[Rfam]
RNA sequence: GACAUCAGGGUGGGUGGAAUACUAUAACAACAUGGAUAAUAUUGUUAUAUUAUCCCACCCACCUUAAUGCC
Numbered sequence: 001g002a003c004a005u006c007a008g009g010g011u012g013g014g015u016g017g018a019a020u021a022c023u024a025u026a027a028c029a030a031c032a033u034g035g036a037u038a039a040u041a042u043u044g045u046u047a048u049a050u051u052a053u054c055c056c057a058c059c060c061a062c063c064u065u066a067a068u069g070c071c
Stems, first nucleotide, its partner, number of pairs: 003069003007065001009063009019053003023049008032040002

Record summary:
mir-2985 microRNA precursor family: a 71-nucleotide sequence from Polypterus senegalus. Its family is annotated with miRNA-mediated post-transcriptional gene silencing and RISC complex in the Gene Ontology. On this family, see Warren et al., Nature 2010: "The genome of a songbird". Rfam's curators write: RNAs can be post-transcriptional modified, in micro RNAs (miRNA) editing of pre-mRNA is a common process. The base pairs follow the family's consensus structure, which was predicted with RNAalifold.